[Rfam]
RNA sequence: GUCUAAAAUACAGUGAUACUGUCUUUUCCAAGCAGUUAUCUGAUUGCUCUGUGUGAAAAAUGACUGUUGCUGUGUGAUUUUGGAU
Numbered sequence: 001g002u003c004u005a006a007a008a009u010a011c012a013g014u015g016a017u018a019c020u021g022u023c024u025u026u027u028c029c030a031a032g033c034a035g036u037u038a039u040c041u042g043a044u045u046g047c048u049c050u051g052u053g054u055g056a057a058a059a060a061u062g063a064c065u066g067u068u069g070c071u072g073u074g075u076g077a078u079u080u081u082g083g084a085u
Stems, first nucleotide, its partner, number of pairs: 001085006008078002010075002
The record is an 85-nucleotide sequence from Geococcyx californianus, which matches "Small nucleolar RNA SNORD121A" in Rfam. Rfam classes the family as a C/D-box small nucleolar RNA. On this family, see Yang et al., Nucleic Acids Res 2006: "snoSeeker: an advanced computational package for screening of guide and orphan snoRNA genes in the human genome". Rfam links the family to the GO terms nucleolus and RNA processing. The match comes from Rfam's covariance-model search (51 bits).